[Rfam]
RNA sequence: UCACAAGUUCAAGGUCAUAGCAGAAGUGCUUGUGGUGUGACCUUGUCAGAUUCCAAUGAAUCUGCAAACUCUACU
Numbered sequence: 001u002c003a004c005a006a007g008u009u010c011a012a013g014g015u016c017a018u019a020g021c022a023g024a025a026g027u028g029c030u031u032g033u034g035g036u037g038u039g040a041c042c043u044u045g046u047c048a049g050a051u052u053c054c055a056a057u058g059a060a061u062c063u064g065c066a067a068a069c070u071c072u073a074c075u
Stems, first nucleotide, its partner, number of pairs: 012043005019075002022072003026038003047064007
This 75-nucleotide sequence from Alligator mississippiensis belongs to the Rfam family "Mammalian CPEB3 ribozyme". A search with the family's covariance model found it, with a score of 39 bits. NCBI's taxonomy places the organism under Eukaryota, Gnathostomata, Teleostomi, Archelosauria, Alligator. Rfam 15.1 lists 5,706 matches to the family in 197 species.